RNA sequence: UGAUGGGCAUAACUUGUAACAGCAACUCCAUGUGGAAAGUGGAUAUAACAUUCCGCUGGAGAUGCUGUUAUCUGUAAUGUGCAU
Numbered sequence: 001u002g003a004u005g006g007g008c009a010u011a012a013c014u015u016g017u018a019a020c021a022g023c024a025a026c027u028c029c030a031u032g033u034g035g036a037a038a039g040u041g042g043a044u045a046u047a048a049c050a051u052u053c054c055g056c057u058g059g060a061g062a063u064g065c066u067g068u069u070a071u072c073u074g075u076a077a078u079g080u081g082c083a084u
Base pairs, nucleotide, nucleotide: 010077012075016071017070018069019068020067021066022065023064026061027060028059029058030057033055034054035053
Dot-bracket structure: .........(.(...((((((((..(((((..(((.................))).)))))..))))))))...).).......
This 84-nucleotide RNA from Hymenochirus boettgeri belongs to the Rfam family "mir-194 microRNA precursor family". The match comes from Rfam's covariance-model search (62 bits). The source organism's lineage runs through Eukaryota, Gnathostomata, Pipoidea, Pipinae and Hymenochirus. Gene Ontology terms of the family: miRNA-mediated post-transcriptional gene silencing and RISC complex.